A member of the RNA family "drz-agam-1 ribozyme" from Hermetia illucens, 80 nucleotides long.
RNA sequence: UACUACCAAAACCCUAUCUCCACUUCCACGUGGUGAUCGCUGGGAGCUCUUUCUUAACGAAAAGCUGCAAACGGAGAAGG
Numbered sequence: 001u002a003c004u005a006c007c008a009a010a011a012c013c014c015u016a017u018c019u020c021c022a023c024u025u026c027c028a029c030g031u032g033g034u035g036a037u038c039g040c041u042g043g044g045a046g047c048u049c050u051u052u053c054u055u056a057a058c059g060a061a062a063a064g065c066u067g068c069a070a071a072c073g074g075a076g077a078a079g080g
Stems, first nucleotide, its partner, number of pairs: 013080003017076001019074002022034003045066004050061002053059001

Taxonomically the source falls in Hermetia (Eukaryota, Protostomia, Hexapoda, Brachycera).